[Rfam]
RNA sequence: CAUUGAAAAAGGCAAACUUAUUGAAAGAUAAGGACGCAAAGCCAAGGGCCUAAAGCUAAUGCUAUGGUAGCCGGUUGCCGAA
Dot-bracket structure: ...........((...((((((....))))))...))..((((..(((((....((....))...)))..))))))......
c-di-GMP-I riboswitch aptamer: an 82-nucleotide sequence from Anaeromonas frigoriresistens. Its Rfam clan is "c-di-GMP_I riboswitch clan". Rfam links the family to the GO term cyclic-di-GMP binding. The source organism's lineage runs through Bacteria, Bacillati, Bacillota, Tissierellales and Anaeromonas. A search with the family's covariance model found it, with a score of 82 bits.